[Rfam]
RNA sequence: GUCUUAUCAAGAGUGAACGAGAGAUCGGGCUCAAUGACUUCACAGCAACCUGCGCUUGACGCAAGGUGCUCCUACCCGCAAAGCGCUUCGCUUUGAAUGAUAAGGA
Numbered sequence: 001g002u003c004u005u006a007u008c009a010a011g012a013g014u015g016a017a018c019g020a021g022a023g024a025u026c027g028g029g030c031u032c033a034a035u036g037a038c039u040u041c042a043c044a045g046c047a048a049c050c051u052g053c054g055c056u057u058g059a060c061g062c063a064a065g066g067u068g069c070u071c072c073u074a075c076c077c078g079c080a081a082a083g084c085g086c087u088u089c090g091c092u093u094u095g096a097a098u099g100a101u102a103a104g105g106a
Stems, first nucleotide, its partner, number of pairs: 002105007013043005021032003026078004044070004049066002051063004074098001079095006